[Rfam]
RNA sequence: ACGAACAAGUUGAAGCUCCCGCUUCACACCCUCAGCAGUAAGUGUCACAGGGUCAAUCGGGGAAGAUAUAAUUAUCUUAUUAUAUCUAUUUCGAAGAGCGGGUGUUGCUAUGCACCCGCUCUUUUUGUUCGUU
Numbered sequence: 001a002c003g004a005a006c007a008a009g010u011u012g013a014a015g016c017u018c019c020c021g022c023u024u025c026a027c028a029c030c031c032u033c034a035g036c037a038g039u040a041a042g043u044g045u046c047a048c049a050g051g052g053u054c055a056a057u058c059g060g061g062g063a064a065g066a067u068a069u070a071a072u073u074a075u076c077u078u079a080u081u082a083u084a085u086c087u088a089u090u091u092c093g094a095a096g097a098g099c100g101g102g103u104g105u106u107g108c109u110a111u112g113c114a115c116c117c118g119c120u121c122u123u124u125u126u127g128u129u130c131g132u133u
Base pairs, nucleotide, nucleotide: 011026012025013024014023015022016021028053029052030051035046036044037043097120098119099118100117101116102115103114104113105112
Rfam assigns this 133-nucleotide RNA from Phocicoccus pinnipedialis to the family "Ribosomal protein L20 leader". The base pairs follow the family's consensus structure, which was predicted with CMfinder. The source organism's lineage runs through Bacteria, Bacillati, Bacillota, Salinicoccaceae and Phocicoccus.